[Rfam]
RNA: DUF805b RNA
Organism: Flavobacterium sangjuense
RNA sequence: UGGGAAGAAGCCGAAAAUCCCUUCAAAGAGUAGGUA
Numbered sequence: 001u002g003g004g005a006a007g008a009a010g011c012c013g014a015a016a017a018u019c020c021c022u023u024c025a026a027a028g029a030g031u032a033g034g035u036a
Base pairs, nucleotide, nucleotide: 002021003020004019005018010035011034012033